[Rfam]
RNA: ROOL RNA
RNA sequence: UUCUGAAUAUCUUCAUAUACCGAACCGUGUGCAUAAGGCUCCUGACAGGGCUUCACGGACUGACGUGUGACGGAACGCCACUGAUAUGUCUGAUAGGACAUUGAGGUAACAGAGCGUCUUAAAAGAGGGCAACUGAUUUUAAGGGAGUACGUAAGACACUUGGUACAACUUCAGGGCGUCAGGUGGGAUAGAAGGAUGAGGGAAAAGGCAGGGUGUUAGGGACUGUUCCUGUAUAAUAGACGACCACGGUGUGGGAAUAACCCGUGAAUAUCAUAAGGCUUUGCGGGCUUAUGGGGAUAGCGGGAAAUAUGCAGGUGGGAAAUGUGCGGCUGAGACGGGGGAAACUUCGGGUAUAAAGUCUGACACCUGUACACUGGCACAAGUCCGUACAAAUUUCUUAUUAUAAGUCGAAUAAUAAUAAAUCUGAAUGUCGUGCUGGUGUUGGGGGUACAAAAUAAUCCCCUGUGUACAAGGUUGCGAUGAGAACCGUAAUUCGUAGGGAAGUAUUGGAGUCGCUAUCCAAUGCUCAGACCCUGCGAUACAGUGGCUGAAGAUUCCUGUUUCCUUUGAAGAUACGCUGAAUAAAAGGCGUGGUAUGUGGGGAUGUUCAG
Numbered sequence: 001u002u003c004u005g006a007a008u009a010u011c012u013u014c015a016u017a018u019a020c021c022g023a024a025c026c027g028u029g030u031g032c033a034u035a036a037g038g039c040u041c042c043u044g045a046c047a048g049g050g051c052u053u054c055a056c057g058g059a060c061u062g063a064c065g066u067g068u069g070a071c072g073g074a075a076c077g078c079c080a081c082u083g084a085u086a087u088g089u090c091u092g093a094u095a096g097g098a099c100a101u102u103g104a105g106g107u108a109a110c111a112g113a114g115c116g117u118c119u120u121a122a123a124a125g126a127g128g129g130c131a132a133c134u135g136a137u138u139u140u141a142a143g144g145g146a147g148u149a150c151g152u153a154a155g156a157c158a159c160u161u162g163g164u165a166c167a168a169c170u171u172c173a174g175g176g177c178g179u180c181a182g183g184u185g186g187g188a189u190a191g192a193a194g195g196a197u198g199a200g201g202g203a204a205a206a207g208g209c210a211g212g213g214u215g216u217u218a219g220g221g222a223c224u225g226u227u228c229c230u231g232u233a234u235a236a237u238a239g240a241c242g243a244c245c246a247c248g249g250u251g252u253g254g255g256a257a258u259a260a261c262c263c264g265u266g267a268a269u270a271u272c273a274u275a276a277g278g279c280u281u282u283g284c285g286g287g288c289u290u291a292u293g294g295g296g297a298u299a300g301c302g303g304g305a306a307a308u309a310u311g312c313a314g315g316u317g318g319g320a321a322a323u324g325u326g327c328g329g330c331u332g333a334g335a336c337g338g339g340g341g342a343a344a345c346u347u348c349g350g351g352u353a354u355a356a357a358g359u360c361u362g363a364c365a366c367c368u369g370u371a372c373a374c375u376g377g378c379a380c381a382a383g384u385c386c387g388u389a390c391a392a393a394u395u396u397c398u399u400a401u402u403a404u405a406a407g408u409c410g411a412a413u414a415a416u417a418a419u420a421a422a423u424c425u426g427a428a429u430g431u432c433g434u435g436c437u438g439g440u441g442u443u444g445g446g447g448g449u450a451c452a453a454a455a456u457a458a459u460c461c462c463c464u465g466u467g468u469a470c471a472a473g474g475u476u477g478c479g480a481u482g483a484g485a486a487c488c489g490u491a492a493u494u495c496g497u498a499g500g501g502a503a504g505u506a507u508u509g510g511a512g513u514c515g516c517u518a519u520c521c522a523a524u525g526c527u528c529a530g531a532c533c534c535u536g537c538g539a540u541a542c543a544g545u546g547g548c549u550g551a552a553g554a555u556u557c558c559u560g561u562u563u564c565c566u567u568u569g570a571a572g573a574u575a576c577g578c579u580g581a582a583u584a585a586a587a588g589g590c591g592u593g594g595u596a597u598g599u600g601g602g603g604a605u606g607u608u609c610a611g
Stems, first nucleotide, its partner, number of pairs: 007608001012603003021594001025058005036053005060182006076116003079112001086101006117144005123138002127134002147166004191592001192568004201559002204556001207555001208549001211368004220361005225323003229319002244254004261304005271294004277289003282313004325389005336349005372441001377436004382431001423531004445464004466543003475491001499535003504527001506524006576591004